The record is a 248-nucleotide part of an RNA from Coniochaeta ligniaria, which matches "Eukaryotic small subunit ribosomal RNA" in Rfam.
The match comes from Rfam's covariance-model search (606 bits).
Clan: SSU clan.
Rfam 15.1 lists 75,755 matches to the family in 2,556 species.
The source organism's lineage runs through Eukaryota, Pezizomycotina, leotiomyceta, Sordariomycetidae and Coniochaeta ligniaria.
[Rfam]
Nucleotides: 248
Base pairs, nucleotide, nucleotide: 001245002244003243004242005241007239012055013054014053015052016051025044026043028041029040030039059233060232063230064229065228068227069225071220072219073217074216075215080119081118082117084115085114086095087094088093098111099110100109101108125209126208127207128206131177132176135174136173137172140169142167143166182199183198184197185196186195187194188193
Number, partner (000 for none) and nucleotide at each position: 001245c002244u003243a004242a005241g006000u007239u008000u009000a010000g011000a012055u013054a014053u015052a016051a017000g018000u019000a020000g021000a022000a023000u024000u025044g026043a027000u028041a029040g030039a031000u032000u033000a034000a035000g036000a037000g038000u039030u040029u041028u042000u043026u044025c045000u046000u047000a048000a049000u050000u051016u052015u053014a054013u055012a056000a057000g058000u059233a060232g061000u062000a063230g064229u065228a066000u067000a068227u069225a070000c071220u072219u073217a074216u075215u076000u077000u078000u079000a080119g081118u082117u083000a084115g085114u086095a087094g088093a089000g090000u091000a092000a093088u094087u095086u096000g097000u098111u099110u100109a101108u102000u103000u104000a105000a106000u107000u108101a109100u110099a111098a112000u113000a114085a115084c116000g117082a118081a119080u120000a121000a122000g123000a124000c125209u126208u127207u128206a129000a130000c131177u132176u133000a134000c135174u136173a137172a138000a139000u140169a141000a142167c143166u144000u145000a146000u147000a148000u149000u150000a151000u152000u153000u154000u155000a156000g157000u158000a159000g160000u161000a162000c163000g164000u165000u166143a167142g168000c169140u170000u171000u172137u173136u174135a175000a176132a177131a178000a179000g180000a181000c182199u183198a184197u185196u186195a187194g188193c189000u190000u191000a192000a193188g194187u195186u196185a197184a198183u199182a200000a201000a202000a203000g204000u205000u206128u207127a208126a209125a210000g211000u212000a213000a214000u215075a216074a217073u218000a219072a220071g221000u222000u223000u224000a225069u226000a227068a228065u229064a230063c231000c232060u233059u234000g235000a236000a237000a238000u239007a240000u241005u242004u243003u244002a245001g246000g247000u248000c